[Rfam]
Nucleotides: 077
Stems, first nucleotide, its partner, number of pairs: 013045001015044004021077007028040001030038001049066001051064005
Number, partner (000 for none) and nucleotide at each position: 001000a002000u003000c004000u005000g006000u007000a008000a009000g010000u011000u012000u013045g014000a015044g016043g017042c018041c019000a020000u021077a022076g023075c024074a025073g026072a027071a028040g029000c030038a031000c032000u033000u034000a035000c036000g037000g038030u039000a040028u041018g042017g043016c044015c045013c046000u047000g048000a049066c050000a051064g052063a053062u054061u055060c056000u057000a058000a059000u060055g061054a062053a063052u064051c065000c066049g067000u068000g069000a070000a071027u072026u073025u074024u075023g076022c077021u

Rfam assigns this 77-nucleotide sequence from Crocodylus porosus to the family "Mammalian CPEB3 ribozyme". The family's consensus secondary structure is taken from published work.